[Rfam]
RNA sequence: GUGCCAAAACACAAUGAGUAAGGAAAACCAAUAGGCCUUGCUAAUCGCUUGGCAGCUUGGCUUCUCGGCAUAGGGACAUCAUUGUUCCCUUGAAGCUCAAUUUUUGCUAGGGCACAGGUCGUCCCCGUUGCGAUGAACAGGCGGCGGAUCCGGCACCUACUUUGUGUCCGGUCUGCUGCCUGUCUCA
Numbered sequence: 001g002u003g004c005c006a007a008a009a010c011a012c013a014a015u016g017a018g019u020a021a022g023g024a025a026a027a028c029c030a031a032u033a034g035g036c037c038u039u040g041c042u043a044a045u046c047g048c049u050u051g052g053c054a055g056c057u058u059g060g061c062u063u064c065u066c067g068g069c070a071u072a073g074g075g076a077c078a079u080c081a082u083u084g085u086u087c088c089c090u091u092g093a094a095g096c097u098c099a100a101u102u103u104u105u106g107c108u109a110g111g112g113c114a115c116a117g118g119u120c121g122u123c124c125c126c127g128u129u130g131c132g133a134u135g136a137a138c139a140g141g142c143g144g145c146g147g148a149u150c151c152g153g154c155a156c157c158u159a160c161u162u163u164g165u166g167u168c169c170g171g172u173c174u175g176c177u178g179c180c181u182g183u184c185u186c187a
Base pairs, nucleotide, nucleotide: 004023005022008019035053036052037051040048056095057094058093060091132186133185135183138182139181140180141179142178143177144176146174147173148172149171150170152168153167154166155165156164
RNA: U12 minor spliceosomal RNA
Organism: Drosophila grimshawi